[Rfam]
Rfam assigns this 88-nucleotide RNA sequence from Medioppia subpectinata to the family "mir-1 microRNA precursor family".
The family has 137 seed sequences and 4,474 matches in Rfam 15.1.
Gene Ontology terms of the family: RISC complex and miRNA-mediated post-transcriptional gene silencing.
It scores 48 bits against the family's covariance model.
Taxonomically the source falls in Medioppia (Eukaryota, Bilateria, Protostomia, Arachnida).
From the family's description: This family represents the microRNA (miRNA) mir-1 family. miRNAs are transcribed as ~70nt precursors (modelled here) and subsequently processed by the Dicer enzyme to give a ~22nt product. In this case the mature sequence comes from the 3' arm of the precursor.

RNA sequence: AUUCGGUCCCCAUAUCUUCUUAUACUUUCCCAUAUUUAAGCCCAUAUCUGAGGGCCGUAUGGAAUGUAAAGAAGUAUGGAGUUCUGGU
Numbered sequence: 001a002u003u004c005g006g007u008c009c010c011c012a013u014a015u016c017u018u019c020u021u022a023u024a025c026u027u028u029c030c031c032a033u034a035u036u037u038a039a040g041c042c043c044a045u046a047u048c049u050g051a052g053g054g055c056c057g058u059a060u061g062g063a064a065u066g067u068a069a070a071g072a073a074g075u076a077u078g079g080a081g082u083u084c085u086g087g088u
Stems, first nucleotide, its partner, number of pairs: 008081001010079005016074006023068003027064001030062005
Dot-bracket structure: .......(.(((((.((((((.(((.(..(((((.......................))))).).)))))))))))))).).......